The family of this 222-nucleotide sequence from Streptomyces spongiae is "Actinobacteria sRNA Ms_IGR-5". By type it is a small RNA. Lineage of the source: Bacteria > Actinomycetota > Kitasatosporales > Streptomycetaceae > Streptomyces.
[Rfam]
RNA sequence: ACACAGAAGGGAGGUGGUUCGGCAGAUGUAUGAAUCCCGGACAAGUGAGGUGGCUGCGGGCUAGCGGCCCGUCACCACACAAGUGCGGUUGCCGGGCCAGCACGUGAACUGAACGUGCAGCCGGCCCAAUCCAACGCAGUCACCCGACCCGCAGGCUCGCCGGUACGUCCGGCCGGCUUCCCGCCGUGAGGCGGGGGACCCAGAGCCUGCGGGUCGUCUGCG
Dot-bracket structure: .............(((((..................................))))).((((.((.((.(.(((...................................)))..).)).)).))))..................(((((((((((((.((((((.......))))))..........................)))))))))))))......